[Rfam]
RNA sequence: GUGAAGCCAAGGCCGACUAAAUUCAAUAUUUAAUAAUAAAAUGCAAAAAGGCACAGGAAACUGUGCCUUUUUG
Numbered sequence: 001g002u003g004a005a006g007c008c009a010a011g012g013c014c015g016a017c018u019a020a021a022u023u024c025a026a027u028a029u030u031u032a033a034u035a036a037u038a039a040a041a042u043g044c045a046a047a048a049a050g051g052c053a054c055a056g057g058a059a060a061c062u063g064u065g066c067c068u069u070u071u072u073g
Stems, first nucleotide, its partner, number of pairs: 002019002006013002046071011
Description:
Shown here is a 73-nucleotide RNA from Geotalea uraniireducens, a member of the family "Salmonella enterica sRNA STnc40". The base pairs follow the family's consensus structure, which was predicted with LocARNA.